[Rfam]
The record is a 542-nucleotide part of an RNA from Tigriopus californicus, which matches "Eukaryotic small subunit ribosomal RNA" in Rfam.
RNA sequence: CGGUUAAAAAGCUCGUAGUUUGACCUCGGCGGGUUGGUGUCGGUUCGAUAUUUGUCGUUACUGGCACAUUGUACCGUGUAUUUUGUGUGGGAGUUUGCGUGGUGCUCUUCAUCGAGUGUCACGCCAAUGCCCACAGGUUUACUUUGAAAAAAUUAGAGUGCUCAAAGCAGGCUUUACACGCUUGAAUCUUCGUGCAUGGAAUAAUGGAAUAGGACGUCGUUUCUAUUUUGUUGGUUUUCUGAAAUCGACGUAAUGAUCAAUAGGGCCAGUCGGGGGCAUUUGUAUCCAGACGACAGAGGUGAAAUUCUUGGACCGUCUGGCGACAAACUACUGCGAAAGCAUUUGCCAAGAAUGUUUUCAUUAAUCAAGAACGAAAGUUAGAGGUUCGAAGGCGAUCAGAUACCGCCCUAGUUCUAACCAUAAACGAUGCCAGCUAGCGAUCCGCAGGCGUUUUAUUUGUAGGCCCUGCGGGAAGCUUCCGAGAAAUCAAAGCUUUUGGGUUCCGGGGGAAGUAUGGUUGCAAAGCUGAAACUUAAAGUAAU
Numbered sequence: 001c002g003g004u005u006a007a008a009a010a011g012c013u014c015g016u017a018g019u020u021u022g023a024c025c026u027c028g029g030c031g032g033g034u035u036g037g038u039g040u041c042g043g044u045u046c047g048a049u050a051u052u053u054g055u056c057g058u059u060a061c062u063g064g065c066a067c068a069u070u071g072u073a074c075c076g077u078g079u080a081u082u083u084u085g086u087g088u089g090g091g092a093g094u095u096u097g098c099g100u101g102g103u104g105c106u107c108u109u110c111a112u113c114g115a116g117u118g119u120c121a122c123g124c125c126a127a128u129g130c131c132c133a134c135a136g137g138u139u140u141a142c143u144u145u146g147a148a149a150a151a152a153u154u155a156g157a158g159u160g161c162u163c164a165a166a167g168c169a170g171g172c173u174u175u176a177c178a179c180g181c182u183u184g185a186a187u188c189u190u191c192g193u194g195c196a197u198g199g200a201a202u203a204a205u206g207g208a209a210u211a212g213g214a215c216g217u218c219g220u221u222u223c224u225a226u227u228u229u230g231u232u233g234g235u236u237u238u239c240u241g242a243a244a245u246c247g248a249c250g251u252a253a254u255g256a257u258c259a260a261u262a263g264g265g266c267c268a269g270u271c272g273g274g275g276g277c278a279u280u281u282g283u284a285u286c287c288a289g290a291c292g293a294c295a296g297a298g299g300u301g302a303a304a305u306u307c308u309u310g311g312a313c314c315g316u317c318u319g320g321c322g323a324c325a326a327a328c329u330a331c332u333g334c335g336a337a338a339g340c341a342u343u344u345g346c347c348a349a350g351a352a353u354g355u356u357u358u359c360a361u362u363a364a365u366c367a368a369g370a371a372c373g374a375a376a377g378u379u380a381g382a383g384g385u386u387c388g389a390a391g392g393c394g395a396u397c398a399g400a401u402a403c404c405g406c407c408c409u410a411g412u413u414c415u416a417a418c419c420a421u422a423a424a425c426g427a428u429g430c431c432a433g434c435u436a437g438c439g440a441u442c443c444g445c446a447g448g449c450g451u452u453u454u455a456u457u458u459g460u461a462g463g464c465c466c467u468g469c470g471g472g473a474a475g476c477u478u479c480c481g482a483g484a485a486a487u488c489a490a491a492g493c494u495u496u497u498g499g500g501u502u503c504c505g506g507g508g509g510a511a512g513u514a515u516g517g518u519u520g521c522a523a524a525g526c527u528g529a530a531a532c533u534u535a536a537a538g539u540a541a542u
Base pairs, nucleotide, nucleotide: 001505002504003503009502011372013370014369018365019364020363263359264358265357267354268353270351271350275347276346277345278344281325282324286320287319288318289317290316291315292314296307297306298305333340334339377418378417379416380415381414382413387411391407392406393405394404429501430500431499432494433493434492436477437476438475441472442471443470444469445468446467447466448465450464451463452462481488482487507534508533509532516527517526518525519524
It scores 1668 bits against the family's covariance model.
The organism belongs to Tigriopus, within Eukaryota.
The base pairs follow the family's consensus structure, which is taken from published work.